[Rfam]
RNA sequence: GGCCUCCCUCUGCAUGGCGAUCGAUUGUGGAACCCCACAAUCGAUUGCCCCGCAGAGGGAAGCC
Numbered sequence: 001g002g003c004c005u006c007c008c009u010c011u012g013c014a015u016g017g018c019g020a021u022c023g024a025u026u027g028u029g030g031a032a033c034c035c036c037a038c039a040a041u042c043g044a045u046u047g048c049c050c051c052g053c054a055g056a057g058g059g060a061a062g063c064c
Stems, first nucleotide, its partner, number of pairs: 001064003005060009016049015
A member of the RNA family "mir-9242 microRNA precursor family" from Myotis lucifugus, 64 nucleotides long.
A search with the family's covariance model found it, with a score of 65 bits.
Rfam 15.1 lists 940 matches to the family in 18 species.
Pairs were carried over by alignment from the consensus structure, which was predicted with RNAalifold.
NCBI's taxonomy places the organism under Eukaryota, Metazoa, Eumetazoa, Eutheria, Myotis.